[Rfam]
RNA sequence: UGCCUUUAUGUGUUGCCCUUUCAUUGCUUCGUUAGUGAUUGGGGUGUCAAGUAAGGCAUACAGUGACGGUUGUGGCCGUUUGUGACAUGAGCUUCAAGUGACUCUUCUACACAAACGGCUGCAAGGACACAC
Numbered sequence: 001u002g003c004c005u006u007u008a009u010g011u012g013u014u015g016c017c018c019u020u021u022c023a024u025u026g027c028u029u030c031g032u033u034a035g036u037g038a039u040u041g042g043g044g045u046g047u048c049a050a051g052u053a054a055g056g057c058a059u060a061c062a063g064u065g066a067c068g069g070u071u072g073u074g075g076c077c078g079u080u081u082g083u084g085a086c087a088u089g090a091g092c093u094u095c096a097a098g099u100g101a102c103u104c105u106u107c108u109a110c111a112c113a114a115a116c117g118g119c120u121g122c123a124a125g126g127a128c129a130c131a132c
Stems, first nucleotide, its partner, number of pairs: 002057005011049002014046004018041001021038005070124003075119010087106001091102001
RNA: Small nucleolar RNA SNORA13